[Rfam]
RNA sequence: AUUUAUGUCAGCUGUGGGCAGUCUCCCUUCCUAGCCAUGGAAGAGCAUAUUCUUGUUUAUUGGCAAAGCUGUCACCAUUUAAUUGGUAUCAGAUUCUGACUUGCACAAGUAACAUUA
Dot-bracket structure: (.(..((((.......)))))..).............................((((..(((((((..(((..((((......))))..)))........)))).)))..))))...

Rfam assigns this 117-nucleotide sequence from Theropithecus gelada to the family "Small nucleolar RNA SNORA24". By type it is an H/ACA-box small nucleolar RNA. The base pairs follow the family's consensus structure, which was predicted with RNAfold. Rfam describes the family as follows. ACA24 is a member of the H/ACA class of snoRNA that guide the sites of modification of uridines to pseudouridines.